This 100-nucleotide RNA from Lachnellula hyalina belongs to the Rfam family "Small nucleolar RNA Z13/snr52".
The family's RNA type in Rfam is C/D-box small nucleolar RNA.
RNA sequence: UAGCUUUAAGUGAUGAAGAAUUUUCGGAUGUUAAAUCAUUAUUGUCUCCGAGAGCGCAAAAUCAUGUGGAGAUUUUCCGUUGCCUUCCUUCUGAUUAUCA
Numbered sequence: 001u002a003g004c005u006u007u008a009a010g011u012g013a014u015g016a017a018g019a020a021u022u023u024u025c026g027g028a029u030g031u032u033a034a035a036u037c038a039u040u041a042u043u044g045u046c047u048c049c050g051a052g053a054g055c056g057c058a059a060a061a062u063c064a065u066g067u068g069g070a071g072a073u074u075u076u077c078c079g080u081u082g083c084c085u086u087c088c089u090u091c092u093g094a095u096u097a098u099c100a
Stems, first nucleotide, its partner, number of pairs: 005100001025079004